RNA sequence: UGAUCCCGUGCGGGAGAGUCCUCCGGAGGUGUUCCGGAGGCGCCGAAGGAGCAAAUCCUCCCCGGAAUCUCUCAGGCCCCCGUACCGCACGGACUAG
Numbered sequence: 001u002g003a004u005c006c007c008g009u010g011c012g013g014g015a016g017a018g019u020c021c022u023c024c025g026g027a028g029g030u031g032u033u034c035c036g037g038a039g040g041c042g043c044c045g046a047a048g049g050a051g052c053a054a055a056u057c058c059u060c061c062c063c064g065g066a067a068u069c070u071c072u073c074a075g076g077c078c079c080c081c082g083u084a085c086c087g088c089a090c091g092g093a094c095u096a097g
Stems, first nucleotide, its partner, number of pairs: 006092008020040008042077003045073002049071003056064001
Dot-bracket structure: .....((((((((......((((((((.....)))))))).(((((..(((....(.......)....))))).))).......)))))))).....
Overview
This 97-nucleotide RNA sequence from Streptomyces sp. A0642 belongs to the Rfam family "Glycine riboswitch aptamer". It scores 67 bits against the family's covariance model. Lineage of the source: Bacteria > Bacillati > Actinomycetota > Streptomycetaceae > Streptomyces.